[Rfam]
RNA sequence: UGAUACUAGGGGUAAAAGUUCAAAAGACGUUCAUGCUUGCAUGAUAAGGCUUUUGAAUUUGGGACCCGCCAAACAUGAGGUGCAGAACAUCCAGUGGAUGUUCGUUUUGCACCGACCGAAGCGGAGCGUAGACAGUAGCGAUUUACGCAGUAAAUCAGCGGAUUUCGAAUGUUUGUAGAAUUGCGGGAGCUGCUUGGCAGCGGAGCAAUUCGUAGGCAUCA
Numbered sequence: 001u002g003a004u005a006c007u008a009g010g011g012g013u014a015a016a017a018g019u020u021c022a023a024a025a026g027a028c029g030u031u032c033a034u035g036c037u038u039g040c041a042u043g044a045u046a047a048g049g050c051u052u053u054u055g056a057a058u059u060u061g062g063g064a065c066c067c068g069c070c071a072a073a074c075a076u077g078a079g080g081u082g083c084a085g086a087a088c089a090u091c092c093a094g095u096g097g098a099u100g101u102u103c104g105u106u107u108u109g110c111a112c113c114g115a116c117c118g119a120a121g122c123g124g125a126g127c128g129u130a131g132a133c134a135g136u137a138g139c140g141a142u143u144u145a146c147g148c149a150g151u152a153a154a155u156c157a158g159c160g161g162a163u164u165u166c167g168a169a170u171g172u173u174u175g176u177a178g179a180a181u182u183g184c185g186g187g188a189g190c191u192g193c194u195u196g197g198c199a200g201c202g203g204a205g206c207a208a209u210u211c212g213u214a215g216g217c218a219u220c221a
Base pairs, nucleotide, nucleotide: 001221002220003219004218006216007215010066011065013063016060017059018058019057020056021055022054023053024052025051026050028048030046031044032043033042034041035040070175071174072173073172074171075170076169079166080165178211179210180209181208182207183206184205189201190200191199192198
Shown here is a 221-nucleotide RNA sequence from Blautia sp. OF03-15BH, a member of the family "Clostridiales-1 RNA". A search with the family's covariance model found it, with a score of 84 bits. Rfam classes the family as a small RNA.